[Rfam]
RNA sequence: AUACGUGUAGGGUGGAGAUGCACAACUGUCGGACUGCGUAGCACAGGCUUUAUCAAGACGCUUUAUCUCGUCCGCUACCGACCGUUGAUUCCUCCUCCUGACUGAUUUUGCUUCUGUUUGUACAACUGUUUUGUGUGCAACAGAUUGCAGGAGCUGCUGUCGCGAACCGGCCCUGGAGGCCGCCUCUCGCUAGACCCGGAAGUGGCAUGCCACUUCUGCUGCGCACCUGACACCGACCGCGAAAGUCGUGUGUGCCAACCGCCGUUUCCGGCAGCCCCGGAAACCA
Numbered sequence: 001a002u003a004c005g006u007g008u009a010g011g012g013u014g015g016a017g018a019u020g021c022a023c024a025a026c027u028g029u030c031g032g033a034c035u036g037c038g039u040a041g042c043a044c045a046g047g048c049u050u051u052a053u054c055a056a057g058a059c060g061c062u063u064u065a066u067c068u069c070g071u072c073c074g075c076u077a078c079c080g081a082c083c084g085u086u087g088a089u090u091c092c093u094c095c096u097c098c099u100g101a102c103u104g105a106u107u108u109u110g111c112u113u114c115u116g117u118u119u120g121u122a123c124a125a126c127u128g129u130u131u132u133g134u135g136u137g138c139a140a141c142a143g144a145u146u147g148c149a150g151g152a153g154c155u156g157c158u159g160u161c162g163c164g165a166a167c168c169g170g171c172c173c174u175g176g177a178g179g180c181c182g183c184c185u186c187u188c189g190c191u192a193g194a195c196c197c198g199g200a201a202g203u204g205g206c207a208u209g210c211c212a213c214u215u216c217u218g219c220u221g222c223g224c225a226c227c228u229g230a231c232a233c234c235g236a237c238c239g240c241g242a243a244a245g246u247c248g249u250g251u252g253u254g255c256c257a258a259c260c261g262c263c264g265u266u267u268c269c270g271g272c273a274g275c276c277c278c279g280g281a282a283a284c285c286a
Stems, first nucleotide, its partner, number of pairs: 014095004023087004028082005036075003040049003057072004096152005155223003159195003162190004168182005199216007230253004234248004264284007

Description:
The family of this 286-nucleotide RNA from Pseudomonas pohangensis is "rne-II RNA".